[Rfam]
RNA sequence: GAUGGUUGGCCCUUCGGUGCCGUCCUGCGGGGGAUGGUGCCAAACCGCCACAUGCUGCGUUGGUUGAUUGUGUCCUGAACGUGAAAGGGAGUUGGUUGUAGGUCAGCUUCUGGG
Numbered sequence: 001g002a003u004g005g006u007u008g009g010c011c012c013u014u015c016g017g018u019g020c021c022g023u024c025c026u027g028c029g030g031g032g033g034a035u036g037g038u039g040c041c042a043a044a045c046c047g048c049c050a051c052a053u054g055c056u057g058c059g060u061u062g063g064u065u066g067a068u069u070g071u072g073u074c075c076u077g078a079a080c081g082u083g084a085a086a087g088g089g090a091g092u093u094g095g096u097u098g099u100a101g102g103u104c105a106g107c108u109u110c111u112g113g114g
Stems, first nucleotide, its partner, number of pairs: 001015002004012002016041006023034004045114002048083001050082001054076001057073003088110008
The record is a 114-nucleotide sequence from Actinacidiphila oryziradicis, which matches "Group II catalytic intron D1-D4-2" in Rfam. Rfam's curators write: Group II introns are found in rRNA, tRNA and mRNA of organelles in fungi, plants and protists, and also in mRNA in bacteria.